[Rfam]
Rfam assigns this 158-nucleotide RNA sequence from Phormidium tenue to the family "Ribosomal protein L10 leader". For this family Rfam cites "Diverse mechanisms for regulating ribosomal protein synthesis in Escherichia coli" (Zengel and Lindahl, Prog Nucleic Acid Res Mol Biol, 1994). The organism belongs to Phormidium tenue, within Bacteria. By type it is a cis-regulatory leader.
RNA sequence: UCACAAUUGAAUAGACGACCGGAGACAGCAGGUAGCCGCCAAGCGCUGCAUAAACCCUGCCGAGGUUGACGUAAACGACUACAGUGCUCUUGCCCAAGCUGAGCAUCCUGGGUUGUUGGUCUACCCCGGCAGAGCUGUCGGGGUUUUGUUUUUACUAA
Numbered sequence: 001u002c003a004c005a006a007u008u009g010a011a012u013a014g015a016c017g018a019c020c021g022g023a024g025a026c027a028g029c030a031g032g033u034a035g036c037c038g039c040c041a042a043g044c045g046c047u048g049c050a051u052a053a054a055c056c057c058u059g060c061c062g063a064g065g066u067u068g069a070c071g072u073a074a075a076c077g078a079c080u081a082c083a084g085u086g087c088u089c090u091u092g093c094c095c096a097a098g099c100u101g102a103g104c105a106u107c108c109u110g111g112g113u114u115g116u117u118g119g120u121c122u123a124c125c126c127c128g129g130c131a132g133a134g135c136u137g138u139c140g141g142g143g144u145u146u147u148g149u150u151u152u153u154a155c156u157a158a
Stems, first nucleotide, its partner, number of pairs: 028060005035049002124143008